Shown here is a 73-nucleotide sequence from Pachyramphus minor, a member of the family "mir-551 microRNA precursor family". A reference for the family is Shao et al. (2008), "Identification of novel chicken microRNAs and analysis of their genomic organization", Gene. Rfam links the family to the GO terms RISC complex and miRNA-mediated post-transcriptional gene silencing.
RNA sequence: UGACCUUGGAAAUCAAGUGUUGGUGGAGCCCCUGGGGUGAUUUGAGGCGACCCACACUUGGUUUCCAGGGUCU
Numbered sequence: 001u002g003a004c005c006u007u008g009g010a011a012a013u014c015a016a017g018u019g020u021u022g023g024u025g026g027a028g029c030c031c032c033u034g035g036g037g038u039g040a041u042u043u044g045a046g047g048c049g050a051c052c053c054a055c056a057c058u059u060g061g062u063u064u065c066c067a068g069g070g071u072c073u
Stems, first nucleotide, its partner, number of pairs: 002072006009065006016058002022052003028048003
Record summary
A search with the family's covariance model found it, with a score of 59 bits.